The record is a 382-nucleotide RNA sequence from a Mycobacteriales bacterium, which matches "Bacterial RNase P class A" in Rfam. By type it is a ribozyme. The source organism's lineage runs through Bacteria, Bacillati, Actinomycetota, Actinomycetes and Mycobacteriales.
RNA sequence: CGAGUCGGACGGAUGGUCGCGGCGGUGAAACCGUCGAGGAAAGUCCGGACUCCGUAGAGCAGGGUGGUUGUUAACGGCAACCCGGGGUGACCCGCGGGACAGUGCCACAGAAAGCAAACCGCCUCCGCGUGAAGCGGUGGUAAGGGUGAAACGGUGGUGUAAGAGACCACCAGCGGGUCAGGUGACUGACUCGGCUUGGUAAACCCCACCCGGAGCAAGGUCAAGAAGGGCUUUCGGGUCCGCGUGAACGAUUGAGGGCUGCUCGCCCGAGUUCGCGGGUAGACCGCUCGAGCCCGUUGGUAACAGCGGGCCCAGAUGGAUGGCCAUCGGUUCGGAGCAUCGCUUCGAGCUACAGAAUCCGGCUUAUGCGCCGACUCGUCCA
Numbered sequence: 001c002g003a004g005u006c007g008g009a010c011g012g013a014u015g016g017u018c019g020c021g022g023c024g025g026u027g028a029a030a031c032c033g034u035c036g037a038g039g040a041a042a043g044u045c046c047g048g049a050c051u052c053c054g055u056a057g058a059g060c061a062g063g064g065u066g067g068u069u070g071u072u073a074a075c076g077g078c079a080a081c082c083c084g085g086g087g088u089g090a091c092c093c094g095c096g097g098g099a100c101a102g103u104g105c106c107a108c109a110g111a112a113a114g115c116a117a118a119c120c121g122c123c124u125c126c127g128c129g130u131g132a133a134g135c136g137g138u139g140g141u142a143a144g145g146g147u148g149a150a151a152c153g154g155u156g157g158u159g160u161a162a163g164a165g166a167c168c169a170c171c172a173g174c175g176g177g178u179c180a181g182g183u184g185a186c187u188g189a190c191u192c193g194g195c196u197u198g199g200u201a202a203a204c205c206c207c208a209c210c211c212g213g214a215g216c217a218a219g220g221u222c223a224a225g226a227a228g229g230g231c232u233u234u235c236g237g238g239u240c241c242g243c244g245u246g247a248a249c250g251a252u253u254g255a256g257g258g259c260u261g262c263u264c265g266c267c268c269g270a271g272u273u274c275g276c277g278g279g280u281a282g283a284c285c286g287c288u289c290g291a292g293c294c295c296g297u298u299g300g301u302a303a304c305a306g307c308g309g310g311c312c313c314a315g316a317u318g319g320a321u322g323g324c325c326a327u328c329g330g331u332u333c334g335g336a337g338c339a340u341c342g343c344u345u346c347g348a349g350c351u352a353c354a355g356a357a358u359c360c361g362g363c364u365u366a367u368g369c370g371c372c373g374a375c376u377c378g379u380c381c382a
Base pairs, nucleotide, nucleotide: 001378002377003376004375005374006373007372008371011367012328013327014326015325016324017323018322020036021035022034023033024032025031026030041365042364043363045362046361047360048359049358050215051214052213053212057264058263059262060261062211063210064209065208066207067081068080069079070078071077082096083094084093085092086091097206098205102204103203104200105199106198119145120144121141122140123139125137126136127135128134153171154170155169156168157167158166173195174193175192176191177190178189179188180187181186219285220284221283222282244276245275246274247273248272249271256268257267258266259265292311293310294309295308296307297306298305299304